[Rfam]
RNA sequence: GCAGGGUUGCUCCUCUUUCCUUAACUCAUGCCACUGUGCCUUUUUAUUUAUUUCACAAUUGUGUGAGUUGAGUACAGAGUGUAAUUCUG
Numbered sequence: 001g002c003a004g005g006g007u008u009g010c011u012c013c014u015c016u017u018u019c020c021u022u023a024a025c026u027c028a029u030g031c032c033a034c035u036g037u038g039c040c041u042u043u044u045u046a047u048u049u050a051u052u053u054c055a056c057a058a059u060u061g062u063g064u065g066a067g068u069u070g071a072g073u074a075c076a077g078a079g080u081g082u083a084a085u086u087c088u089g
Stems, first nucleotide, its partner, number of pairs: 004087007013079002020072010035057004
This 89-nucleotide RNA sequence from Manacus vitellinus belongs to the Rfam family "mir-1426 microRNA precursor family".
The base pairs follow the family's consensus structure, which was predicted with RNAalifold.
The family has 2 seed sequences and 326 matches in Rfam 15.1.